[Rfam]
RNA sequence: GGACCCUUUAAUACAGUCCUGUGAGGCUGGGAAGGAACAGUUAAGCAAUAGUUAACCCUAUUGUAAAACUCUUUGUGUGUGUACACGAACCCUCCCUGUCAAAACGGGGAGGGUUUUAUUGUU
Numbered sequence: 001g002g003a004c005c006c007u008u009u010a011a012u013a014c015a016g017u018c019c020u021g022u023g024a025g026g027c028u029g030g031g032a033a034g035g036a037a038c039a040g041u042u043a044a045g046c047a048a049u050a051g052u053u054a055a056c057c058c059u060a061u062u063g064u065a066a067a068a069c070u071c072u073u074u075g076u077g078u079g080u081g082u083a084c085a086c087g088a089a090c091c092c093u094c095c096c097u098g099u100c101a102a103a104a105c106g107g108g109g110a111g112g113g114u115u116u117u118a119u120u121g122u123u
Base pairs, nucleotide, nucleotide: 005035006034007033008032009031014029015028016027017026018025039070040069041068042067045064046063047062048061049060050059051058087116088115089114090113091112092111093110094109095108096107097106098105
Overview:
A member of the RNA family "PyrR binding site" from Jeotgalibacillus soli, 123 nucleotides long. The base pairs follow the family's consensus structure, which is taken from published work. A reference for the family is Bonner et al. (2001), "Molecular recognition of pyr mRNA by the Bacillus subtilis attenuation regulatory protein PyrR", Nucleic Acids Res. A search with the family's covariance model found it, with a score of 58 bits.